Rfam assigns this 136-nucleotide RNA sequence to the family "Small nucleolar RNA SNORA42/SNORA80 family". Rfam links the family to the GO terms nucleolus and RNA processing. For this family Rfam cites "A computational screen for mammalian pseudouridylation guide H/ACA RNAs" (Schattner et al., RNA, 2006). From the family's description: The members of this family belong to the H/ACA class of snoRNAs that guide the sites of modification of uridines to pseudouridines. Human ACA42 (SNORA42) was cloned from HeLa cells by immunoprecipitation with anti-GAR1 antibody.
[Rfam]
RNA sequence: GUAAGUCAUUGGAUUGAUGGCAGGCUCGUCCCCCUGGGCCUCUCAUAGUGUCCCAUGCUAGAGCAAAUUGUGGCUCCUAACCAUGACCUGGCCUCCGUGCCUGUAGGUGGCUGGCACUGAAGUGGGUCACACAGUG
Number, nucleotide and partner (000 for none) at each position: 001g058002u057003a056004a000005g053006u000007c000008a000009u000010u000011g000012g000013a000014u000015u048016g000017a046018u045019g044020g043021c000022a041023g040024g039025c037026u036027c000028g000029u000030c000031c000032c000033c000034c000035u000036g026037g025038g000039c024040c023041u022042c000043u020044c019045a018046u017047a000048g015049u000050g000051u000052c000053c005054c000055a000056u003057g002058c001059u000060a000061g000062a000063g000064c000065a000066a000067a000068u000069u000070g000071u129072g128073g127074c126075u125076c124077c000078u000079a000080a000081c000082c119083a118084u000085g000086a000087c114088c113089u110090g000091g108092c107093c106094u105095c000096c000097g000098u000099g000100c000101c000102u000103g000104u000105a094106g093107g092108u091109g000110g089111c000112u000113g088114g087115c000116a000117c000118u083119g082120a000121a000122g000123u000124g076125g075126g074127u073128c072129a071130c000131a000132c000133a000134g000135u000136g000